[Rfam]
RNA: Small nucleolar RNA Z279/snoR105/snoR108
Organism: Cannabis sativa
RNA sequence: GGGAUGUGAUGAGUGGUCUAAUCUUGCUCUCUGUGCAAGUUGAGUGUUUGCCCCAAGCCUGUUACGACAUGGGACACUCUUUUGAACCAUCUGAUCCC
Numbered sequence: 001g002g003g004a005u006g007u008g009a010u011g012a013g014u015g016g017u018c019u020a021a022u023c024u025u026g027c028u029c030u031c032u033g034u035g036c037a038a039g040u041u042g043a044g045u046g047u048u049u050g051c052c053c054c055a056a057g058c059c060u061g062u063u064a065c066g067a068c069a070u071g072g073g074a075c076a077c078u079c080u081u082u083u084g085a086a087c088c089a090u091c092u093g094a095u096c097c098c
Base pairs, nucleotide, nucleotide: 001098002097003096004095014089015088016087017086023039024038025037026036027035042079043078044077045076046075047074048073059072060071061070062069